[Rfam]
RNA sequence: CGAAGUACGUAUGCUCCCCUCCCCUUACGACUUCGGACUGGCGGGCUUU
Number, nucleotide and partner (000 for none) at each position: 001c000002g000003a000004a000005g000006u000007a000008c043009g042010u041011a000012u000013g038014c000015u037016c036017c035018c000019c000020u000021c000022c000023c000024c029025u000026u000027a000028c000029g024030a000031c000032u000033u000034c000035g017036g016037a015038c013039u000040g000041g010042c009043g008044g000045g000046c000047u000048u000049u000